This 197-nucleotide RNA sequence from Sodalis ligni belongs to the Rfam family "Yersinia sRNA 251". On this family, see Nuss et al., PLoS Genet 2015: "Transcriptomic profiling of Yersinia pseudotuberculosis reveals reprogramming of the Crp regulon by temperature and uncovers Crp as a master regulator of small RNAs".

RNA sequence: GAUAGGCGUUAAGAGUGCGCUGGCACAGUGCCGAACGAACGCAGUCCUGUUUACCAAAACGCACGACGGCAAUCAUGUCGUCCUCUUCGGUAAAUCGCUCCAGGGCAUCCUCCAGACCCGAUUUAACGCCGCGAGGUAAAUCGCACUGGGUGAUAUCGCCAUUCACAAUUACCGUGACAUUUUCCCCGAGGCGCGUU
Numbered sequence: 001g002a003u004a005g006g007c008g009u010u011a012a013g014a015g016u017g018c019g020c021u022g023g024c025a026c027a028g029u030g031c032c033g034a035a036c037g038a039a040c041g042c043a044g045u046c047c048u049g050u051u052u053a054c055c056a057a058a059a060c061g062c063a064c065g066a067c068g069g070c071a072a073u074c075a076u077g078u079c080g081u082c083c084u085c086u087u088c089g090g091u092a093a094a095u096c097g098c099u100c101c102a103g104g105g106c107a108u109c110c111u112c113c114a115g116a117c118c119c120g121a122u123u124u125a126a127c128g129c130c131g132c133g134a135g136g137u138a139a140a141u142c143g144c145a146c147u148g149g150g151u152g153a154u155a156u157c158g159c160c161a162u163u164c165a166c167a168a169u170u171a172c173c174g175u176g177a178c179a180u181u182u183u184c185c186c187c188g189a190g191g192c193g194c195g196u197u
Stems, first nucleotide, its partner, number of pairs: 003053006015040002018037002061078003065074002086115002089112002096105001098103001116196002119193002122191003128137003140169002143166001147161003174186001176184002
Rfam classes the family as an antisense RNA.